[Rfam]
RNA sequence: GUAGGAACGGCACAGCCGCAAAUCCGACCUGCCACCGAUUGUGUGGCUUGGGAUUGCGGACGUGC
Numbered sequence: 001g002u003a004g005g006a007a008c009g010g011c012a013c014a015g016c017c018g019c020a021a022a023u024c025c026g027a028c029c030u031g032c033c034a035c036c037g038a039u040u041g042u043g044u045g046g047c048u049u050g051g052g053a054u055u056g057c058g059g060a061c062g063u064g065c
Stems, first nucleotide, its partner, number of pairs: 010065004016059006024052002031047005036041001
Rfam assigns this 65-nucleotide sequence to the family "S15-Halobacteria ribosomal protein leader".
Rfam classes the family as a cis-regulatory leader.
Pairs were carried over by alignment from the consensus structure, which is taken from published work.
A reference for the family is Eckert and Weinberg (2020), "Discovery of 20 novel ribosomal leader candidates in bacteria and archaea", BMC Microbiol.